[Rfam]
RNA sequence: GCUAUCCUCAAUUCAACGAGGAUGAGAAACUCCGGGGAAGAGCUUCGACCCGAGCGUAGCGAGAGAACGUUGCGACAGCAACGGCCCGAAGGGCGAGAGCCACGCAGUGGCGAAUUAUCCUCUCUCGCCGACCA
Numbered sequence: 001g002c003u004a005u006c007c008u009c010a011a012u013u014c015a016a017c018g019a020g021g022a023u024g025a026g027a028a029a030c031u032c033c034g035g036g037g038a039a040g041a042g043c044u045u046c047g048a049c050c051c052g053a054g055c056g057u058a059g060c061g062a063g064a065g066a067a068c069g070u071u072g073c074g075a076c077a078g079c080a081a082c083g084g085c086c087c088g089a090a091g092g093g094c095g096a097g098a099g100c101c102a103c104g105c106a107g108u109g110g111c112g113a114a115u116u117a118u119c120c121u122c123u124c125u126c127g128c129c130g131a132c133c134a
Base pairs, nucleotide, nucleotide: 015125018122019121020120021119023117033095034094044090045089046088047087051061052060068083069082070081071080072079073078
The record is a 134-nucleotide sequence from Enterobacteriaceae bacterium RIT714, which matches "RtT RNA" in Rfam. On this family, see Bosl and Kersten, Nucleic Acids Res 1991: "A novel RNA product of the tyrT operon of Escherichia coli". Rfam's curators write: This family represents a bacterial cis-regulatory element known as RtT RNA. The exact function of RtT is unknown although it is thought that it may be involved in changing the cellular response in relation to amino acid starvation. The match comes from Rfam's covariance-model search (90 bits). Rfam links the family to the GO term cellular response to amino acid starvation.